[Rfam]
RNA sequence: CUCUGACUUUAACAUGGAAGUGCUUUCUGGGACUUUUCAAGUAGUAAGUGCUUCCAUGUUUUAGUCGGAG
Numbered sequence: 001c002u003c004u005g006a007c008u009u010u011a012a013c014a015u016g017g018a019a020g021u022g023c024u025u026u027c028u029g030g031g032a033c034u035u036u037u038c039a040a041g042u043a044g045u046a047a048g049u050g051c052u053u054c055c056a057u058g059u060u061u062u063a064g065u066c067g068g069a070g
Stems, first nucleotide, its partner, number of pairs: 001070003005066004011060015027044002
RNA: mir-302 microRNA precursor family